[Rfam]
RNA sequence: UAUGAUAUAGGGUCGAAGGUCAUAAUGCGUACAUGCUUGCAUGUAAAGCAGUAUGACUUUACGACCCGAACAAAUAUGAGGAAAAAGCAAUUUACGAAGUAAAUUAGCGGUUUCCGAGGCCAGUAGUACUUAACGAGGCACGAGUUUAGUACUACUCCCACAGAGUGAUAUUUGUAGAAUUGCGAGAAUAACGAAGUUAUGGAGCAAUUCGUAUAUCAUA
Numbered sequence: 001u002a003u004g005a006u007a008u009a010g011g012g013u014c015g016a017a018g019g020u021c022a023u024a025a026u027g028c029g030u031a032c033a034u035g036c037u038u039g040c041a042u043g044u045a046a047a048g049c050a051g052u053a054u055g056a057c058u059u060u061a062c063g064a065c066c067c068g069a070a071c072a073a074a075u076a077u078g079a080g081g082a083a084a085a086a087g088c089a090a091u092u093u094a095c096g097a098a099g100u101a102a103a104u105u106a107g108c109g110g111u112u113u114c115c116g117a118g119g120c121c122a123g124u125a126g127u128a129c130u131u132a133a134c135g136a137g138g139c140a141c142g143a144g145u146u147u148a149g150u151a152c153u154a155c156u157c158c159c160a161c162a163g164a165g166u167g168a169u170a171u172u173u174g175u176a177g178a179a180u181u182g183c184g185a186g187a188a189u190a191a192c193g194a195a196g197u198u199a200u201g202g203a204g205c206a207a208u209u210c211g212u213a214u215a216u217c218a219u220a
Stems, first nucleotide, its partner, number of pairs: 001220007011066004017059008026050003030046001031044005070175008177210007188200004